[Rfam]
RNA: SAM riboswitch aptamer (S box leader)
Organism: Streptohalobacillus salinus
Nucleotides: 109
Base pairs, nucleotide, nucleotide: 001109003107004106005105006104007103008102013042014041015040016039017038021031022030023029025078026077027076028075043070044069045068046067048066050061051060052059053058074101079097080096081095082094083093084092
Number, partner (000 for none) and nucleotide at each position: 001109a002000u003107c004106u005105u006104a007103u008102c009000c010000a011000g012000a013042g014041a015040g016039g017038u018000g019000g020000a021031g022030g023029g024000a025078c026077u027076g028075g029023c030022c031021c032000u033000u034000u035000g036000a037000a038017g039016c040015c041014u042013c043070g044069g045068c046067a047000a048066c049000a050061g051060a052059c053058a054000u055000u056000c057000g058053u059052g060051u061050c062000c063000u064000a065000c066048g067046u068045g069044c070043c071000a072000a073000u074101u075028c076027c077026a078025g079097c080096a081095a082094g083093u084092c085000g086000c087000u088000a089000u090000g091000u092084g093083a094082c095081u096080u097079g098000a099000a100000a101074a102008g103007a104006u105005a106004a107003g108000u109001u